[Rfam]
RNA sequence: UCAGGUUAAGGUUCUGUCGUUCACUUAGACUCUGAUUUUUCUGCUGGUCAGUGCAUGACAGAACUUCACUCUGGC
Numbered sequence: 001u002c003a004g005g006u007u008a009a010g011g012u013u014c015u016g017u018c019g020u021u022c023a024c025u026u027a028g029a030c031u032c033u034g035a036u037u038u039u040u041c042u043g044c045u046g047g048u049c050a051g052u053g054c055a056u057g058a059c060a061g062a063a064c065u066u067c068a069c070u071c072u073g074g075c
Stems, first nucleotide, its partner, number of pairs: 004071002007068001009066008022053004028049004
RNA: mir-148/mir-152 microRNA precursor family
Organism: Eptatretus burgeri